[Rfam]
RNA sequence: CAAUUAAACAUGGAGCAGGCGAUGACUCAACUUUGAGCGUGGGGCUGGGCCGGGACAACAACCCGGCAGCGGGCGAUGAAAUUUAUGCGGCUCGCGGGACCGUU
Numbered sequence: 001c002a003a004u005u006a007a008a009c010a011u012g013g014a015g016c017a018g019g020c021g022a023u024g025a026c027u028c029a030a031c032u033u034u035g036a037g038c039g040u041g042g043g044g045c046u047g048g049g050c051c052g053g054g055a056c057a058a059c060a061a062c063c064c065g066g067c068a069g070c071g072g073g074c075g076a077u078g079a080a081a082u083u084u085a086u087g088c089g090g091c092u093c094g095c096g097g098g099a100c101c102g103u104u
Base pairs, nucleotide, nucleotide: 010103011102012101013100016098018046019045020044022040023039024038027035049067050066051065052064053063069095070094071093072092073091074090
The record is a 104-nucleotide sequence from Cloacibacillus evryensis, which matches "NiCo (Nickel/Cobalt) riboswitch aptamer" in Rfam. The base pairs follow the family's consensus structure, which is taken from published work.